[Rfam]
This 60-nucleotide RNA from Ideonella sp. MAG2 belongs to the Rfam family "COG3860 RNA". The family's RNA type in Rfam is cis-regulatory element. It scores 62 bits against the family's covariance model.
RNA sequence: CGGUCGGCAGUUCACCCAGGCAUCGCCGCGUGACCUUCGGUUCACGAGCUAAACCUGCCC
Numbered sequence: 001c002g003g004u005c006g007g008c009a010g011u012u013c014a015c016c017c018a019g020g021c022a023u024c025g026c027c028g029c030g031u032g033a034c035c036u037u038c039g040g041u042u043c044a045c046g047a048g049c050u051a052a053a054c055c056u057g058c059c060c
Base pairs, nucleotide, nucleotide: 002016003015004014029046030045031044032043